[Rfam]
RNA sequence: ACUAAAGAUAAAAAUAUCACUCGUAUAUGCUCAGAAAUAAGGUCUGAGAGUUUCUACCAAGAUACCGUAAAUAUCUUGACUAUGAGUGAAAUUAUUAUACCA
Number, nucleotide and partner (000 for none) at each position: 001a000002c000003u000004a000005a000006a000007g000008a000009u000010a000011a000012a000013a000014a000015u000016a000017u000018c088019a087020c086021u085022c084023g083024u082025a081026u000027a000028u000029g000030c048031u047032c046033a045034g044035a043036a000037a000038u000039a000040a000041g000042g000043u035044c034045u033046g032047a031048g030049a000050g000051u000052u000053u000054c000055u000056a000057c000058c078059a077060a076061g075062a074063u073064a072065c000066c000067g000068u000069a000070a000071a000072u064073a063074u062075c061076u060077u059078g058079a000080c000081u025082a024083u023084g022085a021086g020087u019088g018089a000090a000091a000092u000093u000094a000095u000096u000097a000098u000099a000100c000101c000102a000
Shown here is a 102-nucleotide RNA sequence from Asaccharospora irregularis, a member of the family "Purine riboswitch aptamer". A search with the family's covariance model found it, with a score of 94 bits. Lineage of the source: Bacteria > Bacillota > Peptostreptococcales > Asaccharospora > Asaccharospora irregularis. The family is grouped with related families in Rfam's "Purine riboswitches". The family's consensus secondary structure is taken from published work.